[Rfam]
RNA sequence: CCAAUGGGGAUACCUGGAGAGUUUGUGCUCUCUCAGCUCUGUCCAUGUGGCGUGUGGGAGUGUAGGCCUUUGCGCUCUGUGACAUAUAGUCCCCUUCCACACCAUUGGAGAGAAAGCCGGGCCCUGAGGUCUGCAGCCUGCAUAUUCCUAAUUCUUCUCCAAGUCUUUGGGCUGUGAUGGAGCAGAUAAACCAUGCAGGAGACAUUA
Dot-bracket structure: ((((((((((((.(((.((((......))))..)))...)))))..((((.....(((((.((.(..............)...)).)..))))...)))).)))))))............................(((((((..........((.(((...(((....))).......))).)).......)))))))........
Numbered sequence: 001c002c003a004a005u006g007g008g009g010a011u012a013c014c015u016g017g018a019g020a021g022u023u024u025g026u027g028c029u030c031u032c033u034c035a036g037c038u039c040u041g042u043c044c045a046u047g048u049g050g051c052g053u054g055u056g057g058g059a060g061u062g063u064a065g066g067c068c069u070u071u072g073c074g075c076u077c078u079g080u081g082a083c084a085u086a087u088a089g090u091c092c093c094c095u096u097c098c099a100c101a102c103c104a105u106u107g108g109a110g111a112g113a114a115a116g117c118c119g120g121g122c123c124c125u126g127a128g129g130u131c132u133g134c135a136g137c138c139u140g141c142a143u144a145u146u147c148c149u150a151a152u153u154c155u156u157c158u159c160c161a162a163g164u165c166u167u168u169g170g171g172c173u174g175u176g177a178u179g180g181a182g183c184a185g186a187u188a189a190a191c192c193a194u195g196c197a198g199g200a201g202a203c204a205u206u207a
Stems, first nucleotide, its partner, number of pairs: 001108007008044005014036003018031004047100004056093004060087001062085002065080001137199007154185002157182003163172003